Source information:
The record is a 62-nucleotide sequence from Corchorus olitorius, which matches "Plastid-psbA-2 3UTR RNA" in Rfam. The match comes from Rfam's covariance-model search (61 bits). The base pairs follow the family's consensus structure, which was predicted with LocARNA. Rfam classes the family as a cis-regulatory element. A reference for the family is Richter et al. (2023), "Retrograde signaling in plants: A critical review focusing on the GUN pathway and beyond", Plant Commun. Rfam's curators write: Plastid psbA-2 is a non-coding RNA (ncRNA) present in plastids. It was identified in inverted repeat sequences in the 3 prime untranslate region (3UTR) of photosystem II quinone-binding protein (psbA). Its Rfam clan is "Plastid-psbA 3UTR RNA clan".

[Rfam]
RNA sequence: UAAAAGGAGCAAUAACCAAUUUCUUGUUCUAUCAAGAGUAUUGGCAUUGCUCCUUUAUUUUC
Numbered sequence: 001u002a003a004a005a006g007g008a009g010c011a012a013u014a015a016c017c018a019a020u021u022u023c024u025u026g027u028u029c030u031a032u033c034a035a036g037a038g039u040a041u042u043g044g045c046a047u048u049g050c051u052c053c054u055u056u057a058u059u060u061u062c
Stems, first nucleotide, its partner, number of pairs: 003056011016044004022037005